[Rfam]
Shown here is a 90-nucleotide RNA from Sporomusa acidovorans, a member of the family "Glycine riboswitch aptamer".
The organism belongs to Sporomusa acidovorans, within Bacteria.
It scores 74 bits against the family's covariance model.

RNA sequence: AUGAUGGUUAUAGGAGAGACCGCGAAAAUUGCGGCGCCGAAGGAGUAAGUUCUUUGUCAAACUCUCAGGCAAAAGGACUAUAACCGGACU
Numbered sequence: 001a002u003g004a005u006g007g008u009u010a011u012a013g014g015a016g017a018g019a020c021c022g023c024g025a026a027a028a029u030u031g032c033g034g035c036g037c038c039g040a041a042g043g044a045g046u047a048a049g050u051u052c053u054u055u056g057u058c059a060a061a062c063u064c065u066c067a068g069g070c071a072a073a074a075g076g077a078c079u080a081u082a083a084c085c086g087g088a089c090u
Base pairs, nucleotide, nucleotide: 006085007084008083009082010081011080012079013078020034021033022032023031036070037069038068039066040065043064044063045062049057050056